Rfam assigns this 77-nucleotide RNA from Acyrthosiphon pisum to the family "mir-276 microRNA precursor family". The base pairs follow the family's consensus structure, which was predicted with RNAalifold. Its family is annotated with miRNA-mediated post-transcriptional gene silencing and RISC complex in the Gene Ontology. A reference for the family is Skalsky et al. (2010), "Identification of microRNAs expressed in two mosquito vectors, Aedes albopictus and Culex quinquefasciatus", BMC Genomics. Lineage of the source: Eukaryota > Metazoa > Ecdysozoa > Sternorrhyncha > Acyrthosiphon. It is one of the family's seed sequences.
[Rfam]
RNA sequence: GACCACUAGCGAGGUAUAGAGUUCCUACGUUCAAAUUAUUAAUGUUACUCGUAGGAACUUCAUACCGUGCUCUUGGA
Numbered sequence: 001g002a003c004c005a006c007u008a009g010c011g012a013g014g015u016a017u018a019g020a021g022u023u024c025c026u027a028c029g030u031u032c033a034a035a036u037u038a039u040u041a042a043u044g045u046u047a048c049u050c051g052u053a054g055g056a057a058c059u060u061c062a063u064a065c066c067g068u069g070c071u072c073u074u075g076g077a
Base pairs, nucleotide, nucleotide: 003076004075005074008071009070010069011068013066014065015064016063017062019060020059021058022057023056024055025054026053027052028051